[Rfam]
Source information: azaaromatic riboswitch aptamer (yjdF RNA): a 108-nucleotide RNA sequence from Paenibacillus athensensis. The source organism's lineage runs through Bacteria, Bacillota, Caryophanales, Paenibacillaceae and Paenibacillus.
RNA sequence: UGAAGAUAGCGUAAAAACACGGUCCGGUUGGUAGUCCGGAUGCACGGAGCCCCCGGCUUCGUGUCGUAUCCUUCCCCCCUCGGGAUGUCCGUCGCCAGAAGCUUUCUU
Numbered sequence: 001u002g003a004a005g006a007u008a009g010c011g012u013a014a015a016a017a018c019a020c021g022g023u024c025c026g027g028u029u030g031g032u033a034g035u036c037c038g039g040a041u042g043c044a045c046g047g048a049g050c051c052c053c054c055g056g057c058u059u060c061g062u063g064u065c066g067u068a069u070c071c072u073u074c075c076c077c078c079c080u081c082g083g084g085a086u087g088u089c090c091g092u093c094g095c096c097a098g099a100a101g102c103u104u105u106c107u108u
Stems, first nucleotide, its partner, number of pairs: 007097001009095003022041006042064010073085004